[Rfam]
RNA sequence: GUGGCUUUUACAUCUCUUUUAAAGAAUCGUGCUUUGAAUUAUUUAUAUGUGAAGCAUUGUUGUGAUUGUAUUAGCCUACAUUGAAUCUAGUUUCCCUCGCUAUCCUGUUCGUCAAUUUCAAUGAUGUUACUUAGGACGUCGGGGAACAAUAUGU
Numbered sequence: 001g002u003g004g005c006u007u008u009u010a011c012a013u014c015u016c017u018u019u020u021a022a023a024g025a026a027u028c029g030u031g032c033u034u035u036g037a038a039u040u041a042u043u044u045a046u047a048u049g050u051g052a053a054g055c056a057u058u059g060u061u062g063u064g065a066u067u068g069u070a071u072u073a074g075c076c077u078a079c080a081u082u083g084a085a086u087c088u089a090g091u092u093u094c095c096c097u098c099g100c101u102a103u104c105c106u107g108u109u110c111g112u113c114a115a116u117u118u119c120a121a122u123g124a125u126g127u128u129a130c131u132u133a134g135g136a137c138g139u140c141g142g143g144g145a146a147c148a149a150u151a152u153g154u
Base pairs, nucleotide, nucleotide: 001079002078003076004075005074009070010069011068012067018064021061022060028059029057030056031055032054033053034052035051038050039049090147091146092145093144094143095142096141098138099137103136104135105134106133107132112124113123114122
Annotation: The record is a 154-nucleotide sequence from Raphanus sativus, which matches "Small nucleolar RNA snoR136" in Rfam. It is annotated as an H/ACA-box small nucleolar RNA. For this family Rfam cites "Mining small RNA sequencing data: a new approach to identify small nucleolar RNAs in Arabidopsis" (Chen and Wu, Nucleic Acids Res, 2009).